RNA sequence: AGUUUCAGGUAAUCGCGGCUAAACUAGAUUUAGCUGAGGAAAGUCCAUGCUCGCACAAGCUGAGAUGCUUGUAGUGUUCGUGCUCAGCGAAACAAUAAGCUGAGGUAGUAUCCUUGAGAUGCUAACGGCGAAGAAAACAUCUAAGGCCUAAGCUAUGAUGGAGUACUUCCUAAGGUGCCACAGUGACGAUUCUUAAUGGAAACAUUAAGGUGGAACGGGUAAACCCCUCGAGCGAGCAACCCAAACAUUCGGUAGGGGCACUUUUUCAAUGGAAUUUAACAGAGAAAGAGACAAGUAAUUGUAGAUAGAUGAUUACCCUUUUGUUAAGCUGCCUAUUCUUAACAAUUGACAAAACAUGGCUUAUCGAA
Numbered sequence: 001a002g003u004u005u006c007a008g009g010u011a012a013u014c015g016c017g018g019c020u021a022a023a024c025u026a027g028a029u030u031u032a033g034c035u036g037a038g039g040a041a042a043g044u045c046c047a048u049g050c051u052c053g054c055a056c057a058a059g060c061u062g063a064g065a066u067g068c069u070u071g072u073a074g075u076g077u078u079c080g081u082g083c084u085c086a087g088c089g090a091a092a093c094a095a096u097a098a099g100c101u102g103a104g105g106u107a108g109u110a111u112c113c114u115u116g117a118g119a120u121g122c123u124a125a126c127g128g129c130g131a132a133g134a135a136a137a138c139a140u141c142u143a144a145g146g147c148c149u150a151a152g153c154u155a156u157g158a159u160g161g162a163g164u165a166c167u168u169c170c171u172a173a174g175g176u177g178c179c180a181c182a183g184u185g186a187c188g189a190u191u192c193u194u195a196a197u198g199g200a201a202a203c204a205u206u207a208a209g210g211u212g213g214a215a216c217g218g219g220u221a222a223a224c225c226c227c228u229c230g231a232g233c234g235a236g237c238a239a240c241c242c243a244a245a246c247a248u249u250c251g252g253u254a255g256g257g258g259c260a261c262u263u264u265u266u267c268a269a270u271g272g273a274a275u276u277u278a279a280c281a282g283a284g285a286a287a288g289a290g291a292c293a294a295g296u297a298a299u300u301g302u303a304g305a306u307a308g309a310u311g312a313u314u315a316c317c318c319u320u321u322u323g324u325u326a327a328g329c330u331g332c333c334u335a336u337u338c339u340u341a342a343c344a345a346u347u348g349a350c351a352a353a354a355c356a357u358g359g360c361u362u363a364u365c366g367a368a
Base pairs, nucleotide, nucleotide: 004368005367006366007364008317009316010315011314012313013312014311016036017035018034019033020032021031041362042361043360045359046358047357048356049355050236051235052234053233054232055072056071057070058069059068060067078231079230080229082227083104084103085102086101087100088099105126106124107123108122109121110120111119127226128225130169131168132167133166138160139159140158141157145154146153147152175224176223177220178219179218192209193208194207195206196205197204198203240257241256242255261290262289263288264287265286266285267284291302292301293300294299321345322344323343324342325341326340327339
Description:
This 368-nucleotide RNA from Fundicoccus ignavus belongs to the Rfam family "Bacterial RNase P class B". Rfam classes the family as a ribozyme. NCBI's taxonomy places the organism under Bacteria, Bacillota, Bacilli, Lactobacillales, Fundicoccus. It scores 321 bits against the family's covariance model. The base pairs follow the family's consensus structure, which is taken from published work. Rfam links the family to the GO terms tRNA processing, dimeric ribonuclease P complex and ribonuclease P activity. Rfam describes the family as follows. Ribonuclease P (RNase P) is a ubiquitous endoribonuclease, found in archaea, bacteria and eukarya as well as chloroplasts and mitochondria. Its best characterised activity is the generation of mature 5'-ends of tRNAs by cleaving the 5'-leader elements of precursor-tRNAs.